[Rfam]
Source information
The record is a 91-nucleotide RNA from Thetidibacter halocola, which matches "Singlet oxygen resistance RNA X" in Rfam. By type it is a small RNA. On this family, see Berghoff et al., Mol Microbiol 2009: "Photooxidative stress-induced and abundant small RNAs in Rhodobacter sphaeroides". NCBI's taxonomy places the organism under Bacteria, Alphaproteobacteria, Rhodobacterales, Roseobacteraceae, Thetidibacter. Pairs were carried over by alignment from the consensus structure. Rfam links the family to the GO term response to photooxidative stress. From the family's description: SorX (RSs2461)like SorY is a singlet oxygen induced sRNA that counteracts oxidative stress by targeting mRNA for a transporter in Rhodobacter. It also has an impact on resistance against organic hydroperoxides. Rfam 15.1 lists 528 matches to the family in 356 species.
RNA sequence: AUUCGGCACAUGAACGGUGCAACGCUUAGCAGCUACGCAUCUUCAUACCUCCCUGUUGGACUACGGCCGAGCUUUGUGCUCGGCCUUUUUU
Number, nucleotide and partner (000 for none) at each position: 001a000002u000003u000004c000005g000006g000007c000008a000009c000010a046011u045012g044013a043014a042015c000016g000017g000018u000019g000020c000021a000022a000023c000024g000025c000026u000027u000028a000029g000030c000031a000032g000033c000034u000035a000036c000037g000038c000039a000040u000041c000042u014043u013044c012045a011046u010047a000048c000049c000050u000051c000052c000053c000054u000055g000056u000057u000058g000059g000060a000061c000062u000063a000064c000065g085066g084067c083068c082069g081070a080071g079072c078073u000074u000075u000076g000077u000078g072079c071080u070081c069082g068083g067084c066085c065086u000087u000088u000089u000090u000091u000